[Rfam]
RNA: mir-3473 microRNA precursor family
RNA sequence: ACCGCUAAGCCAUCUCUCCAGCCCUCACAAAAAAGUUUUUUAAAAAAAUAAUAAUGAGGGCUGGAGGGAUGGCUUAGUGGU
Numbered sequence: 001a002c003c004g005c006u007a008a009g010c011c012a013u014c015u016c017u018c019c020a021g022c023c024c025u026c027a028c029a030a031a032a033a034a035g036u037u038u039u040u041u042a043a044a045a046a047a048a049u050a051a052u053a054a055u056g057a058g059g060g061c062u063g064g065a066g067g068g069a070u071g072g073c074u075u076a077g078u079g080g081u
Stems, first nucleotide, its partner, number of pairs: 002080023